[Rfam]
RNA sequence: GAAGGAGCAAUACCGACCCUCUUGAUAGAAUAAGAGGGUCGGUAUUGCUUCUUCAUUU
Numbered sequence: 001g002a003a004g005g006a007g008c009a010a011u012a013c014c015g016a017c018c019c020u021c022u023u024g025a026u027a028g029a030a031u032a033a034g035a036g037g038g039u040c041g042g043u044a045u046u047g048c049u050u051c052u053u054c055a056u057u058u
Stems, first nucleotide, its partner, number of pairs: 001054014019036006
The record is a 58-nucleotide sequence from Papaver somniferum, which matches "Plastid-psbA-3 3UTR RNA" in Rfam.
About the family: Plastid psbA-3 is a non-coding RNA (ncRNA) present in plastids. It was identified in inverted repeat sequences in the 3 prime untranslate region (3UTR) of photosystem II quinone-binding protein (psbA).
The family's consensus secondary structure was predicted with LocARNA.
The literature on the family includes a 2023 paper in Plant Commun by Richter et al., "Retrograde signaling in plants: A critical review focusing on the GUN pathway and beyond".
The family is grouped with related families in Rfam's "Plastid-psbA 3UTR RNA clan".